bZIP non canonical Hac1/Xbp1 intron: a 79-nucleotide sequence from Calycina marina. By type it is a small RNA. Lineage of the source: Eukaryota > Fungi > saccharomyceta > leotiomyceta > Calycina. The match comes from Rfam's covariance-model search (46 bits). On this family, see Hooks and Griffiths-Jones, RNA Biol 2011: "Conserved RNA structures in the non-canonical Hac1/Xbp1 intron". bZIP intron RNA is a non-canonical intron that was first reported in HAC1 gene in yeast and XBP1 gene in Metazoa.

[Rfam]
Nucleotides: 079
Stems, first nucleotide, its partner, number of pairs: 001079007009068004024042006047059003
Number, partner (000 for none) and nucleotide at each position: 001079u002078g003077c004076c005075g006074c007073c008000c009068c010067u011066c012065u013000u014000g015000a016000c017000u018000u019000g020000a021000c022000a023000c024042a025041a026040c027039a028038a029037c030000c031000u032000g033000c034000c035000g036000c037029g038028u039027u040026g041025u042024u043000g044000u045000g046000u047059g048058a049057c050000c051000u052000g053000c054000a055000g056000u057049g058048u059047c060000a061000g062000c063000c064000g065012a066011g067010a068009g069000g070000a071000a072000u073007g074006g075005c076004g077003g078002u079001a